[Rfam]
The family of this 229-nucleotide RNA sequence from a Peptococcaceae bacterium is "Group II catalytic intron D1-D4-6".
RNA sequence: UGAAUACUACACGGUAAAGCCUAGCCAGCCACCGUUACCCAGCCUUGGAGCCGAAAGAGUAAUCCUAGGUUUAAGCGUAGGCAGGGGAGGUAGCGAGCCGCAAGCGAAAGCUAAAGGUAUUGAGCCCCGUAAGUCUAACUGGGAAGGCCGAUGUGUUGGGACGCAUAGCAGGCAACAUUCCCUAGCAUGCAAAGGCGAGUGCUAGAGAACUUCCCCGGGGUCCUGACUU
Numbered sequence: 001u002g003a004a005u006a007c008u009a010c011a012c013g014g015u016a017a018a019g020c021c022u023a024g025c026c027a028g029c030c031a032c033c034g035u036u037a038c039c040c041a042g043c044c045u046u047g048g049a050g051c052c053g054a055a056a057g058a059g060u061a062a063u064c065c066u067a068g069g070u071u072u073a074a075g076c077g078u079a080g081g082c083a084g085g086g087g088a089g090g091u092a093g094c095g096a097g098c099c100g101c102a103a104g105c106g107a108a109a110g111c112u113a114a115a116g117g118u119a120u121u122g123a124g125c126c127c128c129g130u131a132a133g134u135c136u137a138a139c140u141g142g143g144a145a146g147g148c149c150g151a152u153g154u155g156u157u158g159g160g161a162c163g164c165a166u167a168g169c170a171g172g173c174a175a176c177a178u179u180c181c182c183u184a185g186c187a188u189g190c191a192a193a194g195g196c197g198a199g200u201g202c203u204a205g206a207g208a209a210c211u212u213c214c215c216c217g218g219g220g221u222c223c224u225g226a227c228u229u
Base pairs, nucleotide, nucleotide: 011035012034013033014032019029020028022198024196025195038085039084042082043081044080045079046077047076048072049071050070051069052068054066057064058063122222124221125220126219127218128217129216141215142214143213144212145211146210147173148172149171152167153166154165155164178209179208180207182205183204184203185202186201187200188199
The literature on the family includes a 2001 paper in Trends Genet by Bonen and Vogel, "The ins and outs of group II introns". The base pairs follow the family's consensus structure. The organism belongs to Peptococcaceae, within Bacteria. Rfam 15.1 lists 1,617 matches to the family in 661 species.